RNA sequence: GGACAUCUGCUGACAUGGGGGUCGAAGUCAGGCGCCAGGCAAUGGGCACUCUGGAUCUUAUCUCUGGAACAUCGAUCCUCCUUGACAGUCUUGGGGGUCAG
Numbered sequence: 001g002g003a004c005a006u007c008u009g010c011u012g013a014c015a016u017g018g019g020g021g022u023c024g025a026a027g028u029c030a031g032g033c034g035c036c037a038g039g040c041a042a043u044g045g046g047c048a049c050u051c052u053g054g055a056u057c058u059u060a061u062c063u064c065u066g067g068a069a070c071a072u073c074g075a076u077c078c079u080c081c082u083u084g085a086c087a088g089u090c091u092u093g094g095g096g097g098u099c100a101g
Stems, first nucleotide, its partner, number of pairs: 002099003006095003009089004014084002017080005023074003027070002029067001031065002034062001037059003043053003
mir-680 microRNA precursor family: a 101-nucleotide RNA sequence from Mus spicilegus.
The source organism's lineage runs through Eukaryota, Bilateria, Teleostomi, Murinae and Mus.